mir-26 microRNA precursor family: a 74-nucleotide RNA sequence from Oncorhynchus kisutch.
RNA sequence: CCUGGGCCUGAUUCAAGUAAUCCAGGAUAGGUUUGUUCAGAAACCUAUUCUGCAUGACUUGGUUCAGGACUAUG
Numbered sequence: 001c002c003u004g005g006g007c008c009u010g011a012u013u014c015a016a017g018u019a020a021u022c023c024a025g026g027a028u029a030g031g032u033u034u035g036u037u038c039a040g041a042a043a044c045c046u047a048u049u050c051u052g053c054a055u056g057a058c059u060u061g062g063u064u065c066a067g068g069a070c071u072a073u074g
Base pairs, nucleotide, nucleotide: 003072004071005070007068008067009066010065011064014061015060016059017058018057020055021054024051025050026049027048028047029046030045031044032043033042
The literature on the family includes a 2001 paper in Science by Lagos-Quintana et al., "Identification of novel genes coding for small expressed RNAs".
Taxonomically the source falls in Oncorhynchus (Eukaryota, Vertebrata, Gnathostomata, Salmoniformes).
The base pairs follow the family's consensus structure, which was predicted with RNAalifold.